[Rfam]
This 77-nucleotide sequence from Alligator mississippiensis belongs to the Rfam family "Mammalian CPEB3 ribozyme".

RNA sequence: GGCUGCAAGUUUGAGUCCACGGUGGAAACACUCACAAUGUGGCCCUAUCAGAUUCCAAUGAAUCUGUAAAUUCUGGU
Numbered sequence: 001g002g003c004u005g006c007a008a009g010u011u012u013g014a015g016u017c018c019a020c021g022g023u024g025g026a027a028a029c030a031c032u033c034a035c036a037a038u039g040u041g042g043c044c045c046u047a048u049c050a051g052a053u054u055c056c057a058a059u060g061a062a063u064c065u066g067u068a069a070a071u072u073c074u075g076g077u
Stems, first nucleotide, its partner, number of pairs: 013045001015043001017042002021077001023075005028040003049066007
A reference for the family is Salehi-Ashtiani et al. (2006), "A genomewide search for ribozymes reveals an HDV-like sequence in the human CPEB3 gene", Science. The base pairs follow the family's consensus structure, which is taken from published work. Taxonomically the source falls in Alligator (Eukaryota, Deuterostomia, Amniota, Archelosauria).